Description:
This 102-nucleotide sequence from Virgibacillus sp. MSP4-1 belongs to the Rfam family "Purine riboswitch aptamer". It scores 87 bits against the family's covariance model. Pairs were carried over by alignment from the consensus structure, which is taken from published work. Gene Ontology term of the family: purine nucleobase biosynthetic process.
[Rfam]
RNA sequence: AAUAAUAAGAAGAACUACCGUCGUAUAUUUUUGGGGAUAUGGCCCAUGAGUUUCUACCGGACCGCCGUAAAUGGUCUGACUACGAGGGUGAUUGCAUAGAUA
Numbered sequence: 001a002a003u004a005a006u007a008a009g010a011a012g013a014a015c016u017a018c019c020g021u022c023g024u025a026u027a028u029u030u031u032u033g034g035g036g037a038u039a040u041g042g043c044c045c046a047u048g049a050g051u052u053u054c055u056a057c058c059g060g061a062c063c064g065c066c067g068u069a070a071a072u073g074g075u076c077u078g079a080c081u082a083c084g085a086g087g088g089u090g091a092u093u094g095c096a097u098a099g100a101u102a
Base pairs, nucleotide, nucleotide: 018088019087021085022084023083024082025081029049030048032046033045034044035043058078059077060076061075062074063073064072